[Rfam]
RNA sequence: ACCACCGAGCCAUCUCUCCAGCCCCCAAUAAAUAUUUUUUAAAAAAUAAAUAAGUAGGGGUUGGAGAGAUGGCUCAGUGGU
Numbered sequence: 001a002c003c004a005c006c007g008a009g010c011c012a013u014c015u016c017u018c019c020a021g022c023c024c025c026c027a028a029u030a031a032a033u034a035u036u037u038u039u040u041a042a043a044a045a046a047u048a049a050a051u052a053a054g055u056a057g058g059g060g061u062u063g064g065a066g067a068g069a070u071g072g073c074u075c076a077g078u079g080g081u
Base pairs, nucleotide, nucleotide: 002080003079004078005077007075008074009073010072011071012070013069014068015067016066017065018064019063020062021061022060023059024058

Source information: Rfam assigns this 81-nucleotide RNA sequence from Nannospalax galili to the family "mir-3473 microRNA precursor family". Rfam links the family to the GO terms RISC complex, miRNA-mediated post-transcriptional gene silencing and cellular response to mechanical stimulus.